[Rfam]
RNA sequence: ACCUGCAUUCGAAAGUGAUUGUGGUCUUGCUGGUGGCCUGGUCAUUGAUAGUGCAGGAAGAGAAACUCCUGAAAGCUUCCCGUGUUUGGAGGACUCAUUCCCUACCUGCCAAACCCUGUAACUUUCACACA
Numbered sequence: 001a002c003c004u005g006c007a008u009u010c011g012a013a014a015g016u017g018a019u020u021g022u023g024g025u026c027u028u029g030c031u032g033g034u035g036g037c038c039u040g041g042u043c044a045u046u047g048a049u050a051g052u053g054c055a056g057g058a059a060g061a062g063a064a065a066c067u068c069c070u071g072a073a074a075g076c077u078u079c080c081c082g083u084g085u086u087u088g089g090a091g092g093a094c095u096c097a098u099u100c101c102c103u104a105c106c107u108g109c110c111a112a113a114c115c116c117u118g119u120a121a122c123u124u125u126c127a128c129a130c131a
Base pairs, nucleotide, nucleotide: 002057003056004055005054006053007052008051009050014046015045016044017043018042019041020040021039023038024037025036026035070127071126072125073124074123075122084114085113086112087111088110090107091106092105
A member of the RNA family "Small nucleolar RNA SNORA71" from Sphenodon punctatus, 131 nucleotides long. The members of this family belong to the H/ACA class of snoRNAs which bind a number of proteins (including dyskerin, Gar1p and Nop10p) to form snoRNP complexes. This class of snoRNAs are thought to guide the sites of modification of uridines to pseudouridines by forming direct base pairing interactions with substrate RNAs. This family includes U71 (SNORA71), ACA39 (SNORA39) and ACA60 (SNORA60). U71 and ACA60 are predicted to guide the pseudouridylation of U406 and U1004 in 18S rRNA respectively. Gene Ontology terms of the family: nucleolus and RNA processing. A reference for the family is Ganot et al. (1997), "The family of box ACA small nucleolar RNAs is defined by an evolutionarily conserved secondary structure and ubiquitous sequence elements essential for RNA accumulation", Genes Dev. The organism belongs to Sphenodon, within Eukaryota.